RNA sequence: UGCCUAACCCUUGUGAGAAUAAAAUCUCCGAGGUAUGGCACAAAAUCCUCCGCAACAUAGAUGGUCGCCUGACCAUACUUCUGUUGCGGAGGUCUAUCCCGAAAGGGGUAGGGCGUUCCUUUGGGGAUGC
Number, nucleotide and partner (000 for none) at each position: 001u040002g039003c038004c037005u000006a000007a000008c000009c033010c032011u031012u030013g029014u000015g028016a027017g026018a025019a000020u000021a000022a000023a000024a000025u018026c017027u016028c015029c013030g012031a011032g010033g009034u000035a000036u000037g004038g003039c002040a001041c000042a000043a000044a000045a000046u000047c092048c091049u090050c089051c088052g087053c086054a085055a084056c083057a082058u000059a079060g078061a076062u075063g074064g073065u072066c000067g000068c000069c000070u000071g000072a065073c064074c063075a062076u061077a000078c060079u059080u000081c000082u057083g056084u055085u054086g053087c052088g051089g050090a049091g048092g047093u000094c111095u110096a109097u108098c107099c106100c105101g000102a000103a000104a000105g100106g099107g098108g097109u096110a095111g094112g000113g130114c129115g128116u127117u126118c125119c000120u000121u000122u000123g000124g000125g118126g117127a116128u115129g114130c113
The family of this 130-nucleotide RNA sequence is "LOOT RNA". Rfam's curators put it in the seed alignment.